[Rfam]
A member of the RNA family "TPP riboswitch aptamer (THI element)" from Kineobactrum sediminis, 102 nucleotides long.
Taxonomically the source falls in Kineobactrum (Bacteria, Pseudomonadota, Gammaproteobacteria, Cellvibrionales).
Nucleotides: 102
Base pairs, nucleotide, nucleotide: 006090007089008088009087010086011051012050013049014048016045017026018025019024033044034043035042036041057082058081059080060079063076064075065074066073
Number, partner (000 for none) and nucleotide at each position: 001000u002000u003000g004000c005000c006090u007089a008088c009087c010086u011051g012050g013049g014048g015000g016045u017026g018025g019024c020000u021000u022000c023000g024019g025018c026017c027000u028000g029000a030000g031000a032000u033044a034043c035042c036041g037000c038000a039000u040000g041036c042035g043034g044033u045016g046000a047000a048014c049013c050012c051011u052000u053000u054000g055000a056000a057082c058081c059080u060079g061000a062000u063076c064075c065074g066073g067000u068000u069000a070000g071000a072000a073066c074065c075064g076063g077000c078000g079060u080059a081058g082057g083000g084000a085000u086010a087009g088008g089007u090006g091000c092000u093000c094000a095000c096000c097000u098000g099000c100000u101000a102000u